[Rfam]
RNA sequence: CUUCUAUCCAGAGAGGUGGAGGGAACGGCCCUUUGAAACCUCGGCAACCUGGGACGUGUGGUCUUACAGCCAAUGUUACGCUCUAAGGUGCCAAUUCCGGCAGGAUAAAAUCUGGGAGAUAGGAG
Numbered sequence: 001c002u003u004c005u006a007u008c009c010a011g012a013g014a015g016g017u018g019g020a021g022g023g024a025a026c027g028g029c030c031c032u033u034u035g036a037a038a039c040c041u042c043g044g045c046a047a048c049c050u051g052g053g054a055c056g057u058g059u060g061g062u063c064u065u066a067c068a069g070c071c072a073a074u075g076u077u078a079c080g081c082u083c084u085a086a087g088g089u090g091c092c093a094a095u096u097c098c099g100g101c102a103g104g105a106u107a108a109a110a111u112c113u114g115g116g117a118g119a120u121a122g123g124a125g
Stems, first nucleotide, its partner, number of pairs: 001125008013042005021031003026099003043092004048088002051083003096117001101114004
Overview:
This 125-nucleotide RNA sequence from Ornatilinea apprima belongs to the Rfam family "SAM riboswitch aptamer (S box leader)". The match comes from Rfam's covariance-model search (83 bits). Pairs were carried over by alignment from the consensus structure, which is taken from published work.